Rfam assigns this 114-nucleotide sequence from Amphibalanus amphitrite to the family "Potassium channel RNA editing signal". The family's RNA type in Rfam is cis-regulatory element. Rfam's curators write: This family represents a group of sequences related to the human potassium channel Kv1.1 hairpin element which directs the efficient modification of an adenosine to inosine by an adenosine deaminase acting on RNA (ADAR).

RNA sequence: GUGGGGUACGGGGACGCCUAUCCGAUCACCACGCUGGGAAAGGUGAUCGGCGCCGUGUGUGCCAUCUGCGGGGUGCUGGUCAUUGCCCUGCCCAUCCCCAUCAUCGUCAACAAC
Dot-bracket structure: ((.(...((((.((.(...((...............((.(........(((.........)))..........).))................))...).)).))))...).))